Shown here is a 107-nucleotide RNA from Populus tomentosa, a member of the family "MIR6450 microRNA precursor family". It scores 71 bits against the family's covariance model. The source organism's lineage runs through Eukaryota, Viridiplantae, Streptophyta, Euphyllophyta and Populus. Pairs were carried over by alignment from the consensus structure, which was predicted with RNAalifold.
RNA sequence: AGGACUCAAUUCUCUUGAGUCUGGCUUCAGAACCCAAGGGUAAUGGGUCCUAUGUCAGGACCCAACUCUCUUGGGUCCUACAUUAGGACCAAAGGGUAAUGGGUCCU
Numbered sequence: 001a002g003g004a005c006u007c008a009a010u011u012c013u014c015u016u017g018a019g020u021c022u023g024g025c026u027u028c029a030g031a032a033c034c035c036a037a038g039g040g041u042a043a044u045g046g047g048u049c050c051u052a053u054g055u056c057a058g059g060a061c062c063c064a065a066c067u068c069u070c071u072u073g074g075g076u077c078c079u080a081c082a083u084u085a086g087g088a089c090c091a092a093a094g095g096g097u098a099a100u101g102g103g104u105c106c107u
Base pairs, nucleotide, nucleotide: 001107002106003105004104005103006102007101008100013095014094015093016092019089020088021087022086024084029079030078032076033075034074035073036072037071044064045063046062047061048060049059050058